[Rfam]
A member of the RNA family "FMN riboswitch aptamer (RFN element)" from Clostridium paridis, 122 nucleotides long. NCBI's taxonomy places the organism under Bacteria, Bacillati, Clostridia, Clostridiaceae, Clostridium.
RNA sequence: UAAUAUCUUCAGGGCGGGGUGUAAUUCCCCACCGGCGGUAUAGCCCGCGACCCUUAUAAAUUUAAGGUUGAUUCGGUGAAACUCCGAAGCCGACAGUAUAGUCUGGAUGGAAGAAGGUAAUA
Numbered sequence: 001u002a003a004u005a006u007c008u009u010c011a012g013g014g015c016g017g018g019g020u021g022u023a024a025u026u027c028c029c030c031a032c033c034g035g036c037g038g039u040a041u042a043g044c045c046c047g048c049g050a051c052c053c054u055u056a057u058a059a060a061u062u063u064a065a066g067g068u069u070g071a072u073u074c075g076g077u078g079a080a081a082c083u084c085c086g087a088a089g090c091c092g093a094c095a096g097u098a099u100a101g102u103c104u105g106g107a108u109g110g111a112a113g114a115a116g117g118u119a120a121u122a
Stems, first nucleotide, its partner, number of pairs: 004119007017029003031102002033092002035048004043090002052067002072088005094105003